RNA sequence: GGGUGCCUUAGCUUGACUGUCUGAGGCAUGAGCGGAAGGCAGAAAAGAGAAAGGCCCCGGUUAAACAUUACUGUUCAAUCCGAGGCCAGACCUUCCAACUCACAAUUGAAAGGUUAGCCUCUUUACCCACAGGAGUAAAGAGUAUGUCGCAAAAU
Dot-bracket structure: (((.((((...(((..((((((...((....))...))))))..)))....)))))))((.(.((((....))))..).))(((((...(((((.(((.......))).)))))..)))))...((..((...........))..))........

This 155-nucleotide RNA from Trabulsiella odontotermitis belongs to the Rfam family "sok antitoxin (CssrC)". On this family, see Kawano et al., Mol Microbiol 2007: "An antisense RNA controls synthesis of an SOS-induced toxin evolved from an antitoxin". The match comes from Rfam's covariance-model search (80 bits). From the family's description: Also identified in Shigella as CssrC. Rfam classes the family as an antitoxin RNA. Rfam links the family to the GO term mRNA binding. The family has 91 seed sequences and 305 matches in Rfam 15.1.